[Rfam]
RNA sequence: AAGCGAUGAAGUAGGAGAGGGCACCGGAACGCCUUGGCUUACUGAGCUUCAUGUGGGUUAUGCAGUGGUACCACAUCACCGGGGUAGGCAGUUUGCCGAAAGAAAAUGCUUUAG
Numbered sequence: 001a002a003g004c005g006a007u008g009a010a011g012u013a014g015g016a017g018a019g020g021g022c023a024c025c026g027g028a029a030c031g032c033c034u035u036g037g038c039u040u041a042c043u044g045a046g047c048u049u050c051a052u053g054u055g056g057g058u059u060a061u062g063c064a065g066u067g068g069u070a071c072c073a074c075a076u077c078a079c080c081g082g083g084g085u086a087g088g089c090a091g092u093u094u095g096c097c098g099a100a101a102g103a104a105a106a107u108g109c110u111u112u113a114g
Stems, first nucleotide, its partner, number of pairs: 001049004011042005018035005024082004062109003087097004

The record is a 114-nucleotide sequence from bacterium 1xD42-87, which matches "drum RNA" in Rfam. The family's RNA type in Rfam is small RNA. Firmicutes, Bacteroidetes (1 example), Proteobacteria (2 examples), Spirochaetes (2 examples).